This 107-nucleotide RNA from Hymenobacter daecheongensis belongs to the Rfam family "SAM riboswitch aptamer (S box leader)". The family's consensus secondary structure is taken from published work. Its family is annotated with regulation of gene expression in the Gene Ontology. A search with the family's covariance model found it, with a score of 73 bits.
RNA sequence: UACUUAUCCAGAAAGACCGAGGGACUGGGCCCGAUGACGUCUUGGCAACCUGCUACACAAGGUGCCAACUCCCAUUCCAAAGCUCCGGCGCUGGAAGAAGAUAAGUA
Numbered sequence: 001u002a003c004u005u006a007u008c009c010a011g012a013a014a015g016a017c018c019g020a021g022g023g024a025c026u027g028g029g030c031c032c033g034a035u036g037a038c039g040u041c042u043u044g045g046c047a048a049c050c051u052g053c054u055a056c057a058c059a060a061g062g063u064g065c066c067a068a069c070u071c072c073c074a075u076u077c078c079a080a081a082g083c084u085c086c087g088g089c090g091c092u093g094g095a096a097g098a099a100g101a102u103a104a105g106u107a
Base pairs, nucleotide, nucleotide: 001107002106003105004104005103006102007101008100013043014042015041016040017039021032022031023030026074027073028072029071044066045065046064047063049062050061052058070099075096076095077094078093079092